[Rfam]
RNA sequence: UGACCUCGUGCGGGAGAGUCCCCUUUGACCAGGGGCGCCGAAGGAGCAACCUCCCCGGAAUCUCUCAGGUAACCGGUACCGCACGGACGAG
Dot-bracket structure: .....((((((((......((((........)))).(((((..(((...((.....))...))))).)))........)))))))).....
Numbered sequence: 001u002g003a004c005c006u007c008g009u010g011c012g013g014g015a016g017a018g019u020c021c022c023c024u025u026u027g028a029c030c031a032g033g034g035g036c037g038c039c040g041a042a043g044g045a046g047c048a049a050c051c052u053c054c055c056c057g058g059a060a061u062c063u064c065u066c067a068g069g070u071a072a073c074c075g076g077u078a079c080c081g082c083a084c085g086g087a088c089g090a091g
Stems, first nucleotide, its partner, number of pairs: 006086008020035004037070003040066002044064003050058002

The family of this 91-nucleotide sequence from Planotetraspora silvatica is "Glycine riboswitch aptamer". The pairing is the family consensus, mapped onto this sequence. NCBI's taxonomy places the organism under Bacteria, Bacillati, Actinomycetes, Streptosporangiales, Planotetraspora.